[Rfam]
The record is a 59-nucleotide RNA sequence from Nocardioides zhouii, which matches "msiK RNA" in Rfam.
Taxonomically the source falls in Nocardioides (Bacteria, Actinomycetota, Propionibacteriales, Nocardioidaceae).
The family's RNA type in Rfam is cis-regulatory element.
RNA sequence: GACCCGAGUCACUUCACUACGGAUCGUCCGGCACGUACCUGCCGGUGAAGGAGAAAAGU
Numbered sequence: 001g002a003c004c005c006g007a008g009u010c011a012c013u014u015c016a017c018u019a020c021g022g023a024u025c026g027u028c029c030g031g032c033a034c035g036u037a038c039c040u041g042c043c044g045g046u047g048a049a050g051g052a053g054a055a056a057a058g059u
Stems, first nucleotide, its partner, number of pairs: 010051001012050005028045006
Dot-bracket structure: .........(.(((((...........((((((......))))))))))))........